[Rfam]
RNA sequence: AUGUAGUGUGACAUGCCCGUUUGGGUUAAACUCUGAUGUUGUGUAUUUAAUUAUUAAUUGCUUUUGGGUAACGAGGUGUUACAAUUAG
Numbered sequence: 001a002u003g004u005a006g007u008g009u010g011a012c013a014u015g016c017c018c019g020u021u022u023g024g025g026u027u028a029a030a031c032u033c034u035g036a037u038g039u040u041g042u043g044u045a046u047u048u049a050a051u052u053a054u055u056a057a058u059u060g061c062u063u064u065u066g067g068g069u070a071a072c073g074a075g076g077u078g079u080u081a082c083a084a085u086u087a088g
Stems, first nucleotide, its partner, number of pairs: 004087003007083008016075001018073004
The family of this 88-nucleotide RNA sequence from Medicago truncatula is "MIR2617 microRNA precursor family". It scores 66 bits against the family's covariance model. Rfam 15.1 lists 1,174 matches to the family in 2 species. Pairs were carried over by alignment from the consensus structure, which was predicted with RNAalifold.